A member of the RNA family "mir-19 microRNA precursor family" from Scleropages formosus, 79 nucleotides long. NCBI's taxonomy places the organism under Eukaryota, Metazoa, Craniata, Osteoglossomorpha, Scleropages. Its Rfam clan is "mir-19 clan". Its family is annotated with miRNA-mediated post-transcriptional gene silencing and RISC complex in the Gene Ontology.
RNA sequence: GUGUACGGGGAGUUUUGCAGGUUUGCUCCCAGCUUGUGUGGAUUCUGCUGUGCAAAUCCAUGCAAAACUCUCUGUGCCU
Numbered sequence: 001g002u003g004u005a006c007g008g009g010g011a012g013u014u015u016u017g018c019a020g021g022u023u024u025g026c027u028c029c030c031a032g033c034u035u036g037u038g039u040g041g042a043u044u045c046u047g048c049u050g051u052g053c054a055a056a057u058c059c060a061u062g063c064a065a066a067a068c069u070c071u072c073u074g075u076g077c078c079u
Base pairs, nucleotide, nucleotide: 003077004076005075006074007073008072009071010070011069012068013067014066015065016064017063018062019061020059021058022056023055024054025053026052028050031049032048033047
Dot-bracket structure: ..((((((((((((((((((((((((.(..(((.............)))).))))).)).)))))))))))))))))..